The family of this 261-nucleotide RNA from Rickettsia typhi is "permuted transfer-messenger RNA". From the family's description: Bacterial tmRNA, also known as 10Sa RNA or SsrA, is named for its dual tRNA and mRNA-like properties. Its role is to liberate the mRNA from a stalled ribosome. It is one of the family's seed sequences. NCBI's taxonomy places the organism under Bacteria, Rickettsiales, Rickettsiaceae, Rickettsieae, Rickettsia. Rfam classes the family as a non-coding RNA gene.

RNA sequence: GGUGAUAAACGGUUUUCGUAAUAAACGUUUUGGACCUGGGGGCAGUUCCCAGCACCUCCACCAAGCUUUGAAAAGUUUUAUUAAAUUAAAACUUAACAAUCAGUAAUAAUUUAUAAAAUAUAAAUUAUAUUUUGGGGGUGAAUAGCUUUCGACAAUCGCUAAAGGGAAAUUUUUUACUCGGUUGAGAUACUGCCGGUUUAAGGGUGUUAAAACCUAACGACAUCCGUUCAAAAACAAUAAACGCAAACGAUAAUUAUAAUC
Numbered sequence: 001g002g003u004g005a006u007a008a009a010c011g012g013u014u015u016u017c018g019u020a021a022u023a024a025a026c027g028u029u030u031u032g033g034a035c036c037u038g039g040g041g042g043c044a045g046u047u048c049c050c051a052g053c054a055c056c057u058c059c060a061c062c063a064a065g066c067u068u069u070g071a072a073a074a075g076u077u078u079u080a081u082u083a084a085a086u087u088a089a090a091a092c093u094u095a096a097c098a099a100u101c102a103g104u105a106a107u108a109a110u111u112u113a114u115a116a117a118a119u120a121u122a123a124a125u126u127a128u129a130u131u132u133u134g135g136g137g138g139u140g141a142a143u144a145g146c147u148u149u150c151g152a153c154a155a156u157c158g159c160u161a162a163a164g165g166g167a168a169a170u171u172u173u174u175u176a177c178u179c180g181g182u183u184g185a186g187a188u189a190c191u192g193c194c195g196g197u198u199u200a201a202g203g204g205u206g207u208u209a210a211a212a213c214c215u216a217a218c219g220a221c222a223u224c225c226g227u228u229c230a231a232a233a234a235c236a237a238u239a240a241a242c243g244c245a246a247a248c249g250a251u252a253a254u255u256a257u258a259a260u261c
Base pairs, nucleotide, nucleotide: 001178002177003176004175005174014168015167016166017165026158027157030155031154032153036052037051038050039049040048053140054139055138056137057136058135059134179195180194181193182192